The family of this 89-nucleotide sequence from Brachypodium distachyon is "MIR9657 microRNA precursor family". The family has 3 seed sequences and 49 matches in Rfam 15.1.
RNA sequence: GCGGCGCGCAGGCUGCGCUCGCCGGAGCAGCGUGCUGGGACCCUAUAUAUCCCGCGCGCUCCUUCGUCGAGUGUGGCCACCGACGCCGC
Numbered sequence: 001g002c003g004g005c006g007c008g009c010a011g012g013c014u015g016c017g018c019u020c021g022c023c024g025g026a027g028c029a030g031c032g033u034g035c036u037g038g039g040a041c042c043c044u045a046u047a048u049a050u051c052c053c054g055c056g057c058g059c060u061c062c063u064u065c066g067u068c069g070a071g072u073g074u075g076g077c078c079a080c081c082g083a084c085g086c087c088g089c
Stems, first nucleotide, its partner, number of pairs: 001089006007082002012077010023066003027062001029060007037052003